[Rfam]
RNA sequence: UAUCAAGCGAUGAACUGAAGUAGUAAUUUUUGAUGCGCGAUGUAGAGAGCAAGUGGCUGGUGAAAACUUGUACCGCUAGAAAAUGAACUUGUCAGGGAGCAAGACGCAUCUCGGCGUUAUCGAGAUUUGAGUGUUUCUGUCGAUGAAGAUAGAAAAACUAAGGUGGUACCGCGUUUACGACGUCCUUAGA
Numbered sequence: 001u002a003u004c005a006a007g008c009g010a011u012g013a014a015c016u017g018a019a020g021u022a023g024u025a026a027u028u029u030u031u032g033a034u035g036c037g038c039g040a041u042g043u044a045g046a047g048a049g050c051a052a053g054u055g056g057c058u059g060g061u062g063a064a065a066a067c068u069u070g071u072a073c074c075g076c077u078a079g080a081a082a083a084u085g086a087a088c089u090u091g092u093c094a095g096g097g098a099g100c101a102a103g104a105c106g107c108a109u110c111u112c113g114g115c116g117u118u119a120u121c122g123a124g125a126u127u128u129g130a131g132u133g134u135u136u137c138u139g140u141c142g143a144u145g146a147a148g149a150u151a152g153a154a155a156a157a158c159u160a161a162g163g164u165g166g167u168a169c170c171g172c173g174u175u176u177a178c179g180a181c182g183u184c185c186u187u188a189g190a
Stems, first nucleotide, its partner, number of pairs: 007100002015095004026084006039074001049071006105116003134155007160187004171183005

A member of the RNA family "T-box leader" from Absicoccus porci, 190 nucleotides long. From the family's description: Uncharged tRNA acts as the effector for transcription antitermination of genes in the T-box leader family. T-boxes are found upstream of many aminoacyl-tRNA synthetase genes and some amino acid biosynthetic genes usually in Gram-positive bacteria. The anticodon of a specific tRNA base pairs to a specifier sequence within the T-box motif, and the NCCA acceptor tail of the tRNA base pairs to a conserved bulge in the T-box antiterminator hairpin. The family's RNA type in Rfam is cis-regulatory leader. Its family is annotated with tRNA binding in the Gene Ontology. A search with the family's covariance model found it, with a score of 112 bits.